RNA sequence: AUGCCCGCACGUGAUGAGAACUGCGUUGGUAGGGACAUCUGAGAGGGUGAUUGAUGAAUGCCAACGGAUCUGAGCUGGGCAA
Number, nucleotide and partner (000 for none) at each position: 001a000002u081003g080004c079005c078006c000007g000008c000009a000010c000011g000012u000013g000014a000015u000016g000017a000018g000019a000020a000021c000022u000023g000024c000025g000026u000027u000028g000029g000030u000031a000032g000033g000034g000035a000036c000037a000038u000039c000040u000041g000042a000043g000044a000045g000046g000047g000048u000049g000050a000051u000052u000053g000054a000055u000056g000057a000058a000059u000060g000061c000062c000063a000064a000065c000066g000067g000068a000069u000070c000071u000072g000073a000074g000075c000076u000077g000078g005079g004080c003081a002082a000
RNA: Small nucleolar RNA SNORD74
Organism: Pipra filicauda